About this RNA
A member of the RNA family "mir-1260b microRNA precursor family" from Myotis myotis, 108 nucleotides long. The organism belongs to Myotis, within Eukaryota. The base pairs follow the family's consensus structure, which was predicted with RNAalifold.
[Rfam]
RNA sequence: GGGGUUGCUGCUCGCCCUCGAUCCCACCACCGCCACCAUUAUUGCCGCUGCCGAGCAGGUGCUGCUGGUGGUGAUGGUGAUAGUCCGGCGGGGGCGGGGGGGCCCCUG
Numbered sequence: 001g002g003g004g005u006u007g008c009u010g011c012u013c014g015c016c017c018u019c020g021a022u023c024c025c026a027c028c029a030c031c032g033c034c035a036c037c038a039u040u041a042u043u044g045c046c047g048c049u050g051c052c053g054a055g056c057a058g059g060u061g062c063u064g065c066u067g068g069u070g071g072u073g074a075u076g077g078u079g080a081u082a083g084u085c086c087g088g089c090g091g092g093g094g095c096g097g098g099g100g101g102g103c104c105c106c107u108g
Base pairs, nucleotide, nucleotide: 007106010103011102012101013100015097016096018094022093023092024091025090027088028087029084030083032081034079035078036077037076038075039074040073041072042071043070044069045068054066055065056064057063058062